[Rfam]
Nucleotides: 158
Stems, first nucleotide, its partner, number of pairs: 005154006017029003031138002033127002035065004060125002068103002107123005129141003
Number, partner (000 for none) and nucleotide at each position: 001000c002000g003000g004000u005154a006153u007152u008151c009150u010149c011000a012000g013000g014000g015000c016000g017029g018028g019027g020000u021000g022000a023000a024000a025000c026000u027019c028018c029017c030000c031138a032137c033127c034126g035065g036064u037063g038062g039000u040000a041000a042000a043000u044000c045000u046000g047000u048000u049000u050000c051000c052000u053000a054000c055000a056000g057000a058000a059000a060125g061124c062038c063037c064036a065035c066000g067000a068103g069102c070000g071000c072000c073000u074000g075000c076000a077000g078000c079000u080000g081000a082000c083000u084000u085000g086000u087000c088000a089000g090000c091000a092000g093000c094000a095000g096000g097000g098000u099000c100000a101000a102069g103068c104000a105000g106000a107123u108122c109121u110120g111119g112000u113000g114000u115000a116000a117000c118000u119111c120110c121109a122108g123107a124061g125060c126034c127033g128000a129141c130140g131139g132000u133000u134000a135000u136000a137032g138031u139131c140130c141129g142000g143000a144000u145000a146000a147000a148000a149010g150009a151008g152007a153006a154005u155000u156000a157000c158000a
Rfam assigns this 158-nucleotide sequence from Oceanospirillum linum to the family "FMN riboswitch aptamer (RFN element)". The base pairs follow the family's consensus structure, which is taken from published work. About the family: The RFN element is a highly conserved domain that is found frequently in the 5'-untranslated regions of prokaryotic mRNAs that encode for flavin mononucleotide (FMN) biosynthesis and transport proteins. Taxonomically the source falls in Oceanospirillum (Bacteria, Pseudomonadota, Oceanospirillales, Oceanospirillaceae).